[Rfam]
RNA sequence: CGGCGGGCCACGUCCCCCCACCGGGACGCUGCUAUCUGGAAGGAUAGACAUG
Numbered sequence: 001c002g003g004c005g006g007g008c009c010a011c012g013u014c015c016c017c018c019c020a021c022c023g024g025g026a027c028g029c030u031g032c033u034a035u036c037u038g039g040a041a042g043g044a045u046a047g048a049c050a051u052g
Stems, first nucleotide, its partner, number of pairs: 011028006032047006
RNA: serC leader